[Rfam]
RNA sequence: CAACACAUCCCGUGAGGGACGUGCCGAACCGAUGAGGAGUCAGCCGAGGUGAUAGUACCCAACGAAUGCUUACUGAUAAGGGUUCUGGGGAAGCAC
Numbered sequence: 001c002a003a004c005a006c007a008u009c010c011c012g013u014g015a016g017g018g019a020c021g022u023g024c025c026g027a028a029c030c031g032a033u034g035a036g037g038a039g040u041c042a043g044c045c046g047a048g049g050u051g052a053u054a055g056u057a058c059c060c061a062a063c064g065a066a067u068g069c070u071u072a073c074u075g076a077u078a079a080g081g082g083u084u085c086u087g088g089g090g091a092a093g094c095a096c
Base pairs, nucleotide, nucleotide: 001026004023005022006021008019009018010017011016040047041046049096050095051094058089059088060087066083
RNA: Group II catalytic intron D1-D4-1